[Rfam]
RNA sequence: GAAAUCAUACUAUACAGAAUCAUUUCUGUAGUGUGUAUUUCGUGAUCCCAACAAAAGGGCGAUACCCGUCCACCGCGAUGAACGGGAGACGAGCGAGUCGCGAGCGGGAAGAACGCGCUUCUGCGCUGAGGACCGUGUCCUAGUCGCGAGGCUGGGACAGCGACUCGCUCUUCUGAGCGGU
Numbered sequence: 001g002a003a004a005u006c007a008u009a010c011u012a013u014a015c016a017g018a019a020u021c022a023u024u025u026c027u028g029u030a031g032u033g034u035g036u037a038u039u040u041c042g043u044g045a046u047c048c049c050a051a052c053a054a055a056a057g058g059g060c061g062a063u064a065c066c067c068g069u070c071c072a073c074c075g076c077g078a079u080g081a082a083c084g085g086g087a088g089a090c091g092a093g094c095g096a097g098u099c100g101c102g103a104g105c106g107g108g109a110a111g112a113a114c115g116c117g118c119u120u121c122u123g124c125g126c127u128g129a130g131g132a133c134c135g136u137g138u139c140c141u142a143g144u145c146g147c148g149a150g151g152c153u154g155g156g157a158c159a160g161c162g163a164c165u166c167g168c169u170c171u172u173c174u175g176a177g178c179g180g181u
Stems, first nucleotide, its partner, number of pairs: 001041005006035006015028005047061001049059001052057001072181005091170011104136003114125004137158009

Shown here is a 181-nucleotide RNA sequence from Teladorsagia circumcincta, a member of the family "Small nucleolar RNA U3". The family's consensus secondary structure is taken from published work. It is annotated as a C/D-box small nucleolar RNA. About the family: Small nucleolar RNAs (snoRNAs) are involved in the processing and modification of rRNA in the nucleolus. There are two main classes of snoRNAs: the box C/D class, and the box H/ACA class. U3 snoRNA is a member of the box C/D class.